[Rfam]
RNA: tRNA
RNA sequence: GGAGGUAUAGCUCAGUGGUAGAGCAAUCGGCUGCAGUCCGAUAGGUCAUCAGCUCAAUCCUGGUUGCCUCCU
Numbered sequence: 001g002g003a004g005g006u007a008u009a010g011c012u013c014a015g016u017g018g019u020a021g022a023g024c025a026a027u028c029g030g031c032u033g034c035a036g037u038c039c040g041a042u043a044g045g046u047c048a049u050c051a052g053c054u055c056a057a058u059c060c061u062g063g064u065u066g067c068c069u070c071c072u
Stems, first nucleotide, its partner, number of pairs: 001071007010024004026042005048064005